[Rfam]
RNA: L2-Alphaproteobacteria ribosomal protein leader
RNA sequence: GGGCACCUACGGGGGCCUAAACCCAAGCCGGGGCAACCCGGCAGACAUAGCAAAACGGAAGACAGCAA
Numbered sequence: 001g002g003g004c005a006c007c008u009a010c011g012g013g014g015g016c017c018u019a020a021a022c023c024c025a026a027g028c029c030g031g032g033g034c035a036a037c038c039c040g041g042c043a044g045a046c047a048u049a050g051c052a053a054a055a056c057g058g059a060a061g062a063c064a065g066c067a068a
Stems, first nucleotide, its partner, number of pairs: 001018004006014003027042006